[Rfam]
The record is a 149-nucleotide RNA sequence from Absicoccus porci, which matches "glmS glucosamine-6-phosphate activated ribozyme aptamer" in Rfam. Rfam's curators write: This entry contains a glucosamine-6-phosphate activated ribozyme that is found in the mRNA for GlmS. GlmS is an enzyme that uses fructose-6-phosphate and glutamine to generate glucosamine-6-phosphate. The family's consensus secondary structure is taken from published work. Taxonomically the source falls in Absicoccus (Bacteria, Bacillota, Erysipelotrichia, Erysipelotrichales).

RNA sequence: AAUAAAAGAGGAGCGCCCGGACUAGAAAACUAGUUGACGAGGACCAGGUUUAUCGAAAGAUUCGGCGGAUGGCCUGGAGGUUGAUACGACCUAGAAACAAGGACAAAACCAAGCGGUGACGUUUGAACAAAUUCCUUGGGUAUCCUCCA
Numbered sequence: 001a002a003u004a005a006a007a008g009a010g011g012a013g014c015g016c017c018c019g020g021a022c023u024a025g026a027a028a029a030c031u032a033g034u035u036g037a038c039g040a041g042g043a044c045c046a047g048g049u050u051u052a053u054c055g056a057a058a059g060a061u062u063c064g065g066c067g068g069a070u071g072g073c074c075u076g077g078a079g080g081u082u083g084a085u086a087c088g089a090c091c092u093a094g095a096a097a098c099a100a101g102g103a104c105a106a107a108a109c110c111a112a113g114c115g116g117u118g119a120c121g122u123u124u125g126a127a128c129a130a131a132u133u134c135c136u137u138g139g140g141u142a143u144c145c146u147c148c149a
Stems, first nucleotide, its partner, number of pairs: 020035006044077005053065004078092006098138005110125006